Rfam assigns this 265-nucleotide RNA from Tindallia californiensis to the family "Bacterial large signal recognition particle RNA". The signal recognition particle (SRP) is a universally conserved ribonucleoprotein involved in the co-translational targeting of proteins to membranes.
[Rfam]
RNA sequence: CUGUGCUAGAUGGGGAGGUAGCGGUGCCCUGUAACCUGCAAACCGCUAUAGCAGGGUCGAAUUCCCUUUGGAGGCAUUGUCUUUGUGGUGCAGACUCGGAUAAGUGGUUAUGACGACUGGGUCCCGCUCAACGGAAGUUCAUGAACCCCGUCAGGUCCGGAAGGAAGCAGCGGUAAGUGAUCCCUUUCGUGUGCUGCGGGUCAGCCUGGUCUGAGCUAACUGUUCGGGUACCGGCUAUGAAACUUUGUCGAAUUGGGGUGCACAG
Numbered sequence: 001c002u003g004u005g006c007u008a009g010a011u012g013g014g015g016a017g018g019u020a021g022c023g024g025u026g027c028c029c030u031g032u033a034a035c036c037u038g039c040a041a042a043c044c045g046c047u048a049u050a051g052c053a054g055g056g057u058c059g060a061a062u063u064c065c066c067u068u069u070g071g072a073g074g075c076a077u078u079g080u081c082u083u084u085g086u087g088g089u090g091c092a093g094a095c096u097c098g099g100a101u102a103a104g105u106g107g108u109u110a111u112g113a114c115g116a117c118u119g120g121g122u123c124c125c126g127c128u129c130a131a132c133g134g135a136a137g138u139u140c141a142u143g144a145a146c147c148c149c150g151u152c153a154g155g156u157c158c159g160g161a162a163g164g165a166a167g168c169a170g171c172g173g174u175a176a177g178u179g180a181u182c183c184c185u186u187u188c189g190u191g192u193g194c195u196g197c198g199g200g201u202c203a204g205c206c207u208g209g210u211c212u213g214a215g216c217u218a219a220c221u222g223u224u225c226g227g228g229u230a231c232c233g234g235c236u237a238u239g240a241a242a243c244u245u246u247g248u249c250g251a252a253u254u255g256g257g258g259u260g261c262a263c264a265g
Stems, first nucleotide, its partner, number of pairs: 001265006009058003012030004017025001019023001035055005064258004073249004079243002082241008094229001096227006104220002106217003115211008123200005129191002132189005137182001139180004148173004156165003